RNA sequence: ACGCCCACGAUGCGAAAUGGGUUCCAUCGCACCGCCGCCGGGCGGAUACCCUGACCGGGUGCGCCCCAGCUCAAGGUGGGGCCGCAUAGCCGACAGCCGUCGCACUCAGGGAGCAGCCCCAUG
Number, nucleotide and partner (000 for none) at each position: 001a000002c000003g000004c000005c000006c000007a000008c000009g000010a000011u000012g000013c000014g000015a000016a000017a000018u000019g000020g000021g000022u000023u000024c000025c000026a000027u000028c000029g000030c000031a000032c000033c000034g000035c000036c000037g000038c000039c000040g000041g000042g000043c000044g000045g000046a000047u000048a000049c000050c000051c000052u000053g000054a000055c000056c000057g000058g000059g000060u086061g085062c084063g083064c000065c080066c079067c078068a077069g000070c000071u000072c000073a000074a000075g000076g000077u068078g067079g066080g065081g000082c000083c063084g062085c061086a060087u000088a000089g103090c102091c000092g101093a100094c099095a000096g000097c000098c000099g094100u093101c092102g090103c089104a000105c000106u000107c000108a000109g000110g000111g000112a000113g000114c000115a000116g000117c000118c000119c000120c000121a000122u000123g000
Streptomyces-metH RNA: a 123-nucleotide RNA sequence from Kitasatospora cheerisanensis. The family's consensus secondary structure is taken from published work. It scores 77 bits against the family's covariance model.